[Rfam]
RNA sequence: GCCCGAGUGGCGGAAUUGGCAGACGCGGGGGUCUCAAAAACCCCUAAGGGCAACCUUGUGUGGGUUCAAGUCCCACCUCGGGCA
Numbered sequence: 001g002c003c004c005g006a007g008u009g010g011c012g013g014a015a016u017u018g019g020c021a022g023a024c025g026c027g028g029g030g031g032u033c034u035c036a037a038a039a040a041c042c043c044c045u046a047a048g049g050g051c052a053a054c055c056u057u058g059u060g061u062g063g064g065u066u067c068a069a070g071u072c073c074c075a076c077c078u079c080g081g082g083c084a
Stems, first nucleotide, its partner, number of pairs: 001083007010026003028044005060076005
Dot-bracket structure: (((((((..(((...........))).(((((.......)))))...............(((((.......)))))))))))).
tRNA: an 84-nucleotide sequence from Atopobium sp. oral taxon 199. Transfer RNA (tRNA) molecules are approximately 80 nucleotides in length. Their secondary structure includes four short double-helical elements and three loops (D, anti-codon, and T loops). Further hydrogen bonds mediate the characteristic L-shaped molecular structure. tRNAs have two regions of fundamental functional importance: the anti-codon, which is responsible for specific mRNA codon recognition, and the 3' end, to which the tRNAs corresponding amino acid is attached (by aminoacyl-tRNA synthetases). tRNAs cope with the degeneracy of the genetic code in two manners: having more than one tRNA (with a specific anti-codon) for a particular amino acid; and 'wobble' base-pairing, i.e. permitting non-standard base-pairing at the 3rd anti-codon position. Pairs were carried over by alignment from the consensus structure, which is taken from published work. Taxonomically the source falls in Atopobium sp. oral taxon 199 (Bacteria, Bacillati, Actinomycetota, Atopobium). The match comes from Rfam's covariance-model search (56 bits).